[Rfam]
This 80-nucleotide RNA from Sphenodon punctatus belongs to the Rfam family "mir-92 microRNA precursor family".
RNA sequence: CUUUCUACACAGGUUGGGAUCAGAUGCAAUGCUGUGUGUGUAUUUCUGGUAUUGCACUUGUCCCGGCCUGUUGAGGUUGG
Numbered sequence: 001c002u003u004u005c006u007a008c009a010c011a012g013g014u015u016g017g018g019a020u021c022a023g024a025u026g027c028a029a030u031g032c033u034g035u036g037u038g039u040g041u042a043u044u045u046c047u048g049g050u051a052u053u054g055c056a057c058u059u060g061u062c063c064c065g066g067c068c069u070g071u072u073g074a075g076g077u078u079g080g
Stems, first nucleotide, its partner, number of pairs: 004076003009071006016064005022058002026055009

A reference for the family is Mourelatos et al. (2002), "miRNPs: a novel class of ribonucleoproteins containing numerous microRNAs", Genes Dev. Rfam describes the family as follows. This family represents the microRNA precursor mir-92. Rfam links the family to the GO terms miRNA-mediated post-transcriptional gene silencing and RISC complex. The base pairs follow the family's consensus structure, which was predicted with PFOLD.